[Rfam]
RNA sequence: GUGACAGAAGAGAGUGAGCACCCAUGGUCUUUCUUGCAAAUAAUCAGUUUUGUAUCAUAUGCUUGAAGCUAUGUGUGCUCACCCUCUAUCUGUCAC
Numbered sequence: 001g002u003g004a005c006a007g008a009a010g011a012g013a014g015u016g017a018g019c020a021c022c023c024a025u026g027g028u029c030u031u032u033c034u035u036g037c038a039a040a041u042a043a044u045c046a047g048u049u050u051u052g053u054a055u056c057a058u059a060u061g062c063u064u065g066a067a068g069c070u071a072u073g074u075g076u077g078c079u080c081a082c083c084c085u086c087u088a089u090c091u092g093u094c095a096c
Stems, first nucleotide, its partner, number of pairs: 001096008010086003014082008023073006